[Rfam]
RNA sequence: AAGGCGGUAUCUUCGGAACCGCACUUAUACGGUUAACGCUUUAGACAAUUGCAUAAAGUACGUUUGUGUGUUUUCUGAUUCUGCUCUGAGCCUGAAGGACCGAGACAGAAGG
Numbered sequence: 001a002a003g004g005c006g007g008u009a010u011c012u013u014c015g016g017a018a019c020c021g022c023a024c025u026u027a028u029a030c031g032g033u034u035a036a037c038g039c040u041u042u043a044g045a046c047a048a049u050u051g052c053a054u055a056a057a058g059u060a061c062g063u064u065u066g067u068g069u070g071u072u073u074u075c076u077g078a079u080u081c082u083g084c085u086c087u088g089a090g091c092c093u094g095a096a097g098g099a100c101c102g103a104g105a106c107a108g109a110a111g112g
Stems, first nucleotide, its partner, number of pairs: 001026003004022005010017002081108003084104003088100001091098002
RNA: pan motif
Organism: Paenibacillus sp. HGF7